[Rfam]
RNA sequence: GCGAAAGUUGCAAGAGAGCACCCGCGCACAACCGGCAUGCCGGACGUUGCCACGGGGUCGCCGAAGGGGCAAGGCCGCAAGGCUGAAACUCUCAGGCAUCAGGAUUGCAACCGGACG
Numbered sequence: 001g002c003g004a005a006a007g008u009u010g011c012a013a014g015a016g017a018g019c020a021c022c023c024g025c026g027c028a029c030a031a032c033c034g035g036c037a038u039g040c041c042g043g044a045c046g047u048u049g050c051c052a053c054g055g056g057g058u059c060g061c062c063g064a065a066g067g068g069g070c071a072a073g074g075c076c077g078c079a080a081g082g083c084u085g086a087a088a089c090u091c092u093c094a095g096g097c098a099u100c101a102g103g104a105u106u107g108c109a110a111c112c113g114g115a116c117g
Stems, first nucleotide, its partner, number of pairs: 007111007020058004060097003063093002067091003073084002
RNA: Glycine riboswitch aptamer